[Rfam]
RNA: Small nucleolar RNA SNORD23
Organism: Ornithorhynchus anatinus
RNA sequence: UGCCCGGUGAUGAGCCCCAUCCUUGCUCUCCGGGGCCCCCGGCCAUCGAGCCGGGGGCGUGGGUGACACCCUGGCAGCCCCGGGCCGGGCCAGUGAGGCUGGUGCCUGGGGGCUGAGGGCC
Numbered sequence: 001u002g003c004c005c006g007g008u009g010a011u012g013a014g015c016c017c018c019a020u021c022c023u024u025g026c027u028c029u030c031c032g033g034g035g036c037c038c039c040c041g042g043c044c045a046u047c048g049a050g051c052c053g054g055g056g057g058c059g060u061g062g063g064u065g066a067c068a069c070c071c072u073g074g075c076a077g078c079c080c081c082g083g084g085c086c087g088g089g090c091c092a093g094u095g096a097g098g099c100u101g102g103u104g105c106c107u108g109g110g111g112g113c114u115g116a117g118g119g120c121c
Base pairs, nucleotide, nucleotide: 002120003119004118005117